This 87-nucleotide sequence from Ammoniphilus sp. CFH 90114 belongs to the Rfam family "BsrC". For this family Rfam cites "Novel small RNA-encoding genes in the intergenic regions of Bacillus subtilis" (Saito et al., Gene, 2008). The base pairs follow the family's consensus structure, which was predicted with CMfinder. The match comes from Rfam's covariance-model search (57 bits). Lineage of the source: Bacteria > Bacillati > Bacilli > Paenibacillaceae > Ammoniphilus. It is annotated as a small RNA. Rfam's curators write: The 301 nucleotide sequence from Kouji Nakamura has been trimmed to a highly conserved ~85 nucleotide long core to form this family.
RNA sequence: ACUUCCCAAAACGACAAUAGCCCUGCCUCUCUAUCGUCCUUACAGCUCCUAGACUGCUCCAGUUUGAAUUGGUCGUGAUGUCGGAAU
Numbered sequence: 001a002c003u004u005c006c007c008a009a010a011a012c013g014a015c016a017a018u019a020g021c022c023c024u025g026c027c028u029c030u031c032u033a034u035c036g037u038c039c040u041u042a043c044a045g046c047u048c049c050u051a052g053a054c055u056g057c058u059c060c061a062g063u064u065u066g067a068a069u070u071g072g073u074c075g076u077g078a079u080g081u082c083g084g085a086a087u
Base pairs, nucleotide, nucleotide: 034067035066036065039062040061043056044055045054047052